[Rfam]
Source information: This 129-nucleotide RNA from Buphagus erythrorhynchus belongs to the Rfam family "Small nucleolar RNA SNORA9". Rfam links the family to the GO terms nucleolus and RNA processing. About the family: ACA9 is a member of the H/ACA class of snoRNA that guide the sites of modification of uridines to pseudouridines. Pairs were carried over by alignment from the consensus structure, which was predicted with PFOLD. Rfam 15.1 lists 1,202 matches to the family in 518 species. The family is grouped with related families in Rfam's "SNORA9 clan".
RNA sequence: CCGCAGUCUCCAGCAUGGGGGAGCCUGGUGUGGCUCCCACCAUUCCUGCAGCGCUGCCAGAGCAUCCCGGGGCAGUUUGAGGCCUCUCCUGGUGCUUCCCGGGGGUGGUUAUGGAAACCCUGGACAUCC
Numbered sequence: 001c002c003g004c005a006g007u008c009u010c011c012a013g014c015a016u017g018g019g020g021g022a023g024c025c026u027g028g029u030g031u032g033g034c035u036c037c038c039a040c041c042a043u044u045c046c047u048g049c050a051g052c053g054c055u056g057c058c059a060g061a062g063c064a065u066c067c068c069g070g071g072g073c074a075g076u077u078u079g080a081g082g083c084c085u086c087u088c089c090u091g092g093u094g095c096u097u098c099c100c101g102g103g104g105g106u107g108g109u110u111a112u113g114g115a116a117a118c119c120c121u122g123g124a125c126a127u128c129c
Stems, first nucleotide, its partner, number of pairs: 003057005016042003021036005068122005083108002086105003090101003